Rfam assigns this 131-nucleotide RNA sequence from Toxoplasma gondii to the family "U4 spliceosomal RNA". Rfam's curators put it in the seed alignment.

RNA sequence: AUCCUUGCGGUAGGGGCAAUGUCGCUGCAAGUGACGCCUAGCGGAUGCGCGAUGAUUGCUAGUUGAAAACUACUCCAAUUCCCGUUCGCCGACCCGAAAGGGUCGGCGGCAAUUUCUGGGGCCCCCCGGGG
Dot-bracket structure: ....................(((((.(((.....(((...)))..))))))))..............................(.((((((((((....))))))))))).............((....))
Rfam describes the family as follows. U4 small nuclear RNA (U4 snRNA) is a component of the major U2-dependent spliceosome.